[Rfam]
RNA sequence: UCUUCAUUCCGCGUGCUAUCUCGCCGGCUAGAGCGACGAGAGAGCGCGCGGAAUGAAGAGA
Number, nucleotide and partner (000 for none) at each position: 001u059002c058003u057004u056005c055006a054007u053008u000009c000010c050011g000012c048013g047014u046015g045016c044017u043018a000019u041020c040021u039022c038023g000024c000025c000026g000027g000028c000029u000030a000031g000032a000033g000034c000035g000036a000037c000038g022039a021040g020041a019042g000043a017044g016045c015046g014047c013048g012049c000050g010051g000052a000053a007054u006055g005056a004057a003058g002059a001060g000061a000
Shown here is a 61-nucleotide RNA sequence from Pristionchus pacificus, a member of the family "mir-8364 microRNA precursor family". Pairs were carried over by alignment from the consensus structure, which was predicted with RNAalifold.